Source information: Rfam assigns this 85-nucleotide RNA from Halalkalibacter oceani to the family "Group II catalytic intron D1-D4-1". On this family, see Bonen and Vogel, Trends Genet 2001: "The ins and outs of group II introns". The organism belongs to Halalkalibacter, within Bacteria.
[Rfam]
RNA sequence: UAACCGCUUGUACGAACAGGCGCUGAGACACUAGAAGUCAGCCGAAGCCAUAGUACGUGUCUGAUCUAGACAGACACGGAAGGGC
Numbered sequence: 001u002a003a004c005c006g007c008u009u010g011u012a013c014g015a016a017c018a019g020g021c022g023c024u025g026a027g028a029c030a031c032u033a034g035a036a037g038u039c040a041g042c043c044g045a046a047g048c049c050a051u052a053g054u055a056c057g058u059g060u061c062u063g064a065u066c067u068a069g070a071c072a073g074a075c076a077c078g079g080a081a082g083g084g085c
Base pairs, nucleotide, nucleotide: 001025002024005022006021007020008019009018010017011016038045039044047085048084049083056078057077058076059075060074061073